Source information:
The family of this 38-nucleotide RNA from Kangiella koreensis is "JUMPstart RNA". The match comes from Rfam's covariance-model search (41 bits). The organism belongs to Kangiella koreensis, within Bacteria. The family's RNA type in Rfam is cis-regulatory element.
Nucleotides: 038
Stems, first nucleotide, its partner, number of pairs: 009024004
Number, partner (000 for none) and nucleotide at each position: 001000a002000g003000g004000c005000a006000c007000u008000u009024u010023g011022g012021g013000a014000g015000c016000c017000u018000g019000a020000a021012c022011c023010c024009a025000c026000g027000g028000g029000c030000g031000g032000u033000a034000g035000c036000g037000u038000g